RNA sequence: AACAAUAGAAUGGCUUAAGAGGGCGGUCGGCUAUCUCCCACGAAGGAAGGGAUGCCUAUAGAGAUCUAUCAAGCGUUAACCUUAAUGUUCAUGUUUGGCAUGUUCAUUCUGGCGUUGCUGAGUUAUCUCAAAAAGAAAUAGACCGCCCUAGUCAAGGAAAACGGUCUAAUCUCUAACGUAUUCGCUUGGAAAAGCCACCGCCCUUAAAAGCGGCUAUUGUACAUCACAGUGAAUGUUCCAGCAUUUGCUG
Numbered sequence: 001a002a003c004a005a006u007a008g009a010a011u012g013g014c015u016u017a018a019g020a021g022g023g024c025g026g027u028c029g030g031c032u033a034u035c036u037c038c039c040a041c042g043a044a045g046g047a048a049g050g051g052a053u054g055c056c057u058a059u060a061g062a063g064a065u066c067u068a069u070c071a072a073g074c075g076u077u078a079a080c081c082u083u084a085a086u087g088u089u090c091a092u093g094u095u096u097g098g099c100a101u102g103u104u105c106a107u108u109c110u111g112g113c114g115u116u117g118c119u120g121a122g123u124u125a126u127c128u129c130a131a132a133a134a135g136a137a138a139u140a141g142a143c144c145g146c147c148c149u150a151g152u153c154a155a156g157g158a159a160a161a162c163g164g165u166c167u168a169a170u171c172u173c174u175a176a177c178g179u180a181u182u183c184g185c186u187u188g189g190a191a192a193a194g195c196c197a198c199c200g201c202c203c204u205u206a207a208a209a210g211c212g213g214c215u216a217u218u219g220u221a222c223a224u225c226a227c228a229g230u231g232a233a234u235g236u237u238c239c240a241g242c243a244u245u246u247g248c249u250g
Base pairs, nucleotide, nucleotide: 002220003219004218005217007215008214011197012196013195014194015193016192020149021148022147023146024145025144031051032050034049036047037046038045060126063124064123065122073088074087075086097119098118099117100116161174163171198213199212200211201210227250228249229248230247231246232245233244234243235242236241
Overview:
A member of the RNA family "BsrG" from Paenibacillus cremeus, 250 nucleotides long. The family's consensus secondary structure was predicted with WAR. For this family Rfam cites "Novel small RNA-encoding genes in the intergenic regions of Bacillus subtilis" (Saito et al., Gene, 2008). The family has 6 seed sequences and 614 matches in Rfam 15.1. Rfam describes the family as follows. bsrE, bsrG and bsrH pair through intermolecular interactions with antisense sRNAs.